[Rfam]
RNA sequence: AAAUUCCACUAGGGGUGCUUGAAUGCUGAGAAAAGGGAAACCUUUAACUCUUCAACCUGAUCUAGUUAACACUAGCGUAGGGAAGUGGAUAAGCAAUGCA
Numbered sequence: 001a002a003a004u005u006c007c008a009c010u011a012g013g014g015g016u017g018c019u020u021g022a023a024u025g026c027u028g029a030g031a032a033a034a035g036g037g038a039a040a041c042c043u044u045u046a047a048c049u050c051u052u053c054a055a056c057c058u059g060a061u062c063u064a065g066u067u068a069a070c071a072c073u074a075g076c077g078u079a080g081g082g083a084a085g086u087g088g089a090u091a092a093g094c095a096a097u098g099c100a
Base pairs, nucleotide, nucleotide: 006088007087008086009085010084011051012050013049014048017026018025033044034043035042036041056081057080058079059078062075063074064073065072
The record is a 100-nucleotide sequence from Shouchella oshimensis, which matches "TPP riboswitch aptamer (THI element)" in Rfam. Rfam 15.1 lists 16,130 matches to the family in 8,693 species. Rfam links the family to the GO term thiamine pyrophosphate binding. The base pairs follow the family's consensus structure, which is taken from published work.